[Rfam]
RNA sequence: CUCUGGAGAGACCGUAAAGGCGCCGAAGGGGCAAAUGAACAGUUUUUGGGGAACUGUUCAGAAAUCUCUCAGGCAAAAGGACAGAG
Numbered sequence: 001c002u003c004u005g006g007a008g009a010g011a012c013c014g015u016a017a018a019g020g021c022g023c024c025g026a027a028g029g030g031g032c033a034a035a036u037g038a039a040c041a042g043u044u045u046u047u048g049g050g051g052a053a054c055u056g057u058u059c060a061g062a063a064a065u066c067u068c069u070c071a072g073g074c075a076a077a078a079g080g081a082c083a084g085a086g
Stems, first nucleotide, its partner, number of pairs: 001086005012020002022074003025070002029068003036060011

A member of the RNA family "Glycine riboswitch aptamer" from Acetivibrio thermocellus, 86 nucleotides long. Lineage of the source: Bacteria > Bacillota > Acetivibrionaceae > Acetivibrio > Acetivibrio thermocellus. This family represents the bacterial glycine riboswitch.